[Rfam]
RNA sequence: GGUAGUAGCAAAUAUUCAAGCGAGAACCUUGAAGACUGAAGUGGAGAAAGGUUCCAUGGUAACAGCAGUUGGACAUGGGUUAGUCGAUCCUAAGGGGUAGCGUAGCUGCGUAAACGUCGUCCUGUUCACAGGACCGUCCCCCGAAAGGGAAACCGGUUAAGAUUCCGGUACUGGGAUGUGGAUCUUUGGCGGUAACGCAAACGAACCAGGAGACGUCGGCGAGGGCCCUGGGAAGAGUUUUCUUCUCUUUCUAACAGCCUAUCGACCCUGAAAUCGGAUUAUCCGGAGCUAGGGUUGGCUUGGCUGCAAGAGCUCGACAAUUCUGUCGGGUCCGGUGCGUCCUCGACGGCCCUUGAAAAUCCUGGGGAGCGAAUUCAUUUUCACGCCCAGUCGUACUCAUAACCGCAGCAGGUCUCCAAGGUGAACAGCCUCUAGUUGA
Numbered sequence: 001g002g003u004a005g006u007a008g009c010a011a012a013u014a015u016u017c018a019a020g021c022g023a024g025a026a027c028c029u030u031g032a033a034g035a036c037u038g039a040a041g042u043g044g045a046g047a048a049a050g051g052u053u054c055c056a057u058g059g060u061a062a063c064a065g066c067a068g069u070u071g072g073a074c075a076u077g078g079g080u081u082a083g084u085c086g087a088u089c090c091u092a093a094g095g096g097g098u099a100g101c102g103u104a105g106c107u108g109c110g111u112a113a114a115c116g117u118c119g120u121c122c123u124g125u126u127c128a129c130a131g132g133a134c135c136g137u138c139c140c141c142c143g144a145a146a147g148g149g150a151a152a153c154c155g156g157u158u159a160a161g162a163u164u165c166c167g168g169u170a171c172u173g174g175g176a177u178g179u180g181g182a183u184c185u186u187u188g189g190c191g192g193u194a195a196c197g198c199a200a201a202c203g204a205a206c207c208a209g210g211a212g213a214c215g216u217c218g219g220c221g222a223g224g225g226c227c228c229u230g231g232g233a234a235g236a237g238u239u240u241u242c243u244u245c246u247c248u249u250u251c252u253a254a255c256a257g258c259c260u261a262u263c264g265a266c267c268c269u270g271a272a273a274u275c276g277g278a279u280u281a282u283c284c285g286g287a288g289c290u291a292g293g294g295u296u297g298g299c300u301u302g303g304c305u306g307c308a309a310g311a312g313c314u315c316g317a318c319a320a321u322u323c324u325g326u327c328g329g330g331u332c333c334g335g336u337g338c339g340u341c342c343u344c345g346a347c348g349g350c351c352c353u354u355g356a357a358a359a360u361c362c363u364g365g366g367g368a369g370c371g372a373a374u375u376c377a378u379u380u381u382c383a384c385g386c387c388c389a390g391u392c393g394u395a396c397u398c399a400u401a402a403c404c405g406c407a408g409c410a411g412g413u414c415u416c417c418a419a420g421g422u423g424a425a426c427a428g429c430c431u432c433u434a435g436u437u438g439a
Base pairs, nucleotide, nucleotide: 015033016032017031018030019029020028034437035436036435037434043417044416045415046414049397050396054078055077056076057075058074063071064070085393086392087391089148090147094142095141097111098110100109101108102107119134120133121132152169153168154167155166156165172389173388174387175386177385178384179383180382181381182378183377189198190197191196206365207364208363209362210361211360215350216349217348218347220345221344222343223342224341225340226339228335229334230333231251232250233249234248235247236246255306256305257304258303259302265295266294267293268292269291270290274286275285276284277283313330314329315328316327317326318325319324403412404411419431420430421429422428
RNA: Eukaryotic large subunit ribosomal RNA, nucleotides 1464 to 1902
Organism: Acaromyces ingoldii